[Rfam]
RNA sequence: AUAAUGAUACUUACGCAUAGCAGGGUCACACCACGGUGCGUCCCGGAUAAUGUCGGGGAGGUGGAAUUCCUAUGA
Numbered sequence: 001a002u003a004a005u006g007a008u009a010c011u012u013a014c015g016c017a018u019a020g021c022a023g024g025g026u027c028a029c030a031c032c033a034c035g036g037u038g039c040g041u042c043c044c045g046g047a048u049a050a051u052g053u054c055g056g057g058g059a060g061g062u063g064g065a066a067u068u069c070c071u072a073u074g075a
Stems, first nucleotide, its partner, number of pairs: 012072001013041006042058003046054003059071003

Description: Rfam assigns this 75-nucleotide RNA sequence from Anaerofustis stercorihominis to the family "pemK RNA". The source organism's lineage runs through Bacteria, Bacillati, Clostridia, Eubacteriales and Anaerofustis stercorihominis. Rfam classes the family as a cis-regulatory element.